[Rfam]
Nucleotides: 075
Stems, first nucleotide, its partner, number of pairs: 003072002011036002016031006034061001039068004044064003047059003
Number, partner (000 for none) and nucleotide at each position: 001000c002000g003072c004071g005000a006000g007000a008000a009000a010000g011036g012035c013000a014000a015000a016031c017030u018029c019028g020027c021026u022000g023000c024000g025000a026021g027020g028019c029018g030017a031016g032000g033000a034061c035012g036011c037000a038000a039068a040067g041066c042065c043000a044064c045063g046062g047059g048058a049057c050000u051000c052000g053000a054000g055000g056000a057049g058048u059047u060000a061034g062046c063045c064044g065042g066041g067040c068039u069000a070000c071004c072003g073000a074000a075000c

c-di-GMP-I-GGC riboswitch aptamer: a 75-nucleotide RNA sequence from a Dehalococcoidia bacterium.
The organism belongs to Dehalococcoidia, within Bacteria.
Pairs were carried over by alignment from the consensus structure, which is taken from published work.
A search with the family's covariance model found it, with a score of 66 bits.
A reference for the family is Weinberg et al. (2017), "Bioinformatic analysis of riboswitch structures uncovers variant classes with altered ligand specificity", Proc Natl Acad Sci U S A.